[Rfam]
RNA sequence: CGCCACAUAUUGUAUGGAAGACUAGUGAUUUUGUUGUUUGAUAUUAUAUAACAAGGAAUCACAAGUCUCCUUACAAUGCGUGGGC
Numbered sequence: 001c002g003c004c005a006c007a008u009a010u011u012g013u014a015u016g017g018a019a020g021a022c023u024a025g026u027g028a029u030u031u032u033g034u035u036g037u038u039u040g041a042u043a044u045u046a047u048a049u050a051a052c053a054a055g056g057a058a059u060c061a062c063a064a065g066u067c068u069c070c071u072u073a074c075a076a077u078g079c080g081u082g083g084g085c
Base pairs, nucleotide, nucleotide: 003083004082005081006080008078010076011075012074013073014072016070017069019068020067021066022065023063025062026061027060028059029058030057031056034054035053036052037051038050